[Rfam]
RNA sequence: ACGAUGUUCCGCUGCCUCUUAGAAGGUAAGAGCAUUAG
Numbered sequence: 001a002c003g004a005u006g007u008u009c010c011g012c013u014g015c016c017u018c019u020u021a022g023a024a025g026g027u028a029a030g031a032g033c034a035u036u037a038g
Stems, first nucleotide, its partner, number of pairs: 003036007013028005
Rfam assigns this 38-nucleotide sequence from Halobacillus sp. BBL2006 to the family "Ribosomal protein L19 leader".
Rfam describes the family as follows. This family is a putative r-protein leader autoregulatory structure found in B. subtilis and other low-GC Gram-positive bacteria. It is located in the 5' untranslated regions of mRNAs encoding ribosomal protein L19 (rplS).
The match comes from Rfam's covariance-model search (38 bits).
The literature on the family includes a 1994 paper in Prog Nucleic Acid Res Mol Biol by Zengel and Lindahl, "Diverse mechanisms for regulating ribosomal protein synthesis in Escherichia coli".